[Rfam]
RNA: Listeria sRNA rli38
Organism: Vagococcus salmoninarum
RNA sequence: UUAGUGUGAGAAUAAUUCAUAAACAUAAUUUUGACUAGUUUAUCUUGAUUUAACAGCUUAUUAGUUAUUGUAAAAAGGUAAACACUAAUUAAAAAUAAAAUAGUUUCCCGCGAAAAACCCCGCCAAGAAAAAUCUUUCUUAGCGGGGUUUUUUA
Numbered sequence: 001u002u003a004g005u006g007u008g009a010g011a012a013u014a015a016u017u018c019a020u021a022a023a024c025a026u027a028a029u030u031u032u033g034a035c036u037a038g039u040u041u042a043u044c045u046u047g048a049u050u051u052a053a054c055a056g057c058u059u060a061u062u063a064g065u066u067a068u069u070g071u072a073a074a075a076a077g078g079u080a081a082a083c084a085c086u087a088a089u090u091a092a093a094a095a096u097a098a099a100a101u102a103g104u105u106u107c108c109c110g111c112g113a114a115a116a117a118c119c120c121c122g123c124c125a126a127g128a129a130a131a132a133u134c135u136u137u138c139u140u141a142g143c144g145g146g147g148u149u150u151u152u153u154a
Stems, first nucleotide, its partner, number of pairs: 008108001010106003051084001056079001058078002061075002086098001088096002115150009125140004